[Rfam]
RNA sequence: UGGAAGUGAUGAAACAGAGAUAAUUGGGUGUUGAAUGUUGUGUGAUUGAACAAUUUUAGUAUGUAAGUAAUAAACCUAAGUUAAUAGCUGCUUGAUAGAGAGUGUGUGUGUGUGUGUGUGUGGUGGAGGCUAUGGAAAGGGGGCACUGACUGGUGAUGCUGAUAUUGGAGUGCAUCUGAGGCUGUUGUAGAAAUGCAUGGGUUCUUGAUUACAACAUUGCUGAUGAUUAUAAUCCAAGAACAGCUCACCUAAGUAGCCUAGCACCCUAAAAUCUCUAACAGGUUCAUUAAACAUGGUCCUGUGAUCUGAUCCAA
Numbered sequence: 001u002g003g004a005a006g007u008g009a010u011g012a013a014a015c016a017g018a019g020a021u022a023a024u025u026g027g028g029u030g031u032u033g034a035a036u037g038u039u040g041u042g043u044g045a046u047u048g049a050a051c052a053a054u055u056u057u058a059g060u061a062u063g064u065a066a067g068u069a070a071u072a073a074a075c076c077u078a079a080g081u082u083a084a085u086a087g088c089u090g091c092u093u094g095a096u097a098g099a100g101a102g103u104g105u106g107u108g109u110g111u112g113u114g115u116g117u118g119u120g121u122g123g124u125g126g127a128g129g130c131u132a133u134g135g136a137a138a139g140g141g142g143g144c145a146c147u148g149a150c151u152g153g154u155g156a157u158g159c160u161g162a163u164a165u166u167g168g169a170g171u172g173c174a175u176c177u178g179a180g181g182c183u184g185u186u187g188u189a190g191a192a193a194u195g196c197a198u199g200g201g202u203u204c205u206u207g208a209u210u211a212c213a214a215c216a217u218u219g220c221u222g223a224u225g226a227u228u229a230u231a232a233u234c235c236a237a238g239a240a241c242a243g244c245u246c247a248c249c250u251a252a253g254u255a256g257c258c259u260a261g262c263a264c265c266c267u268a269a270a271a272u273c274u275c276u277a278a279c280a281g282g283u284u285c286a287u288u289a290a291a292c293a294u295g296g297u298c299c300u301g302u303g304a305u306c307u308g309a310u311c312c313a314a
Stems, first nucleotide, its partner, number of pairs: 001313004183216008192206002195203001196201001

The record is a 314-nucleotide sequence from Catagonus wagneri, which matches "Small Cajal body-specific RNA 7" in Rfam. Taxonomically the source falls in Catagonus (Eukaryota, Opisthokonta, Vertebrata, Eutheria). A reference for the family is Darzacq et al. (2002), "Cajal body-specific small nuclear RNAs: a novel class of 2'-O-methylation and pseudouridylation guide RNAs", EMBO J. Rfam classes the family as a small Cajal body RNA. Rfam 15.1 lists 570 matches to the family in 531 species. Its family is annotated with nucleolus and RNA processing in the Gene Ontology.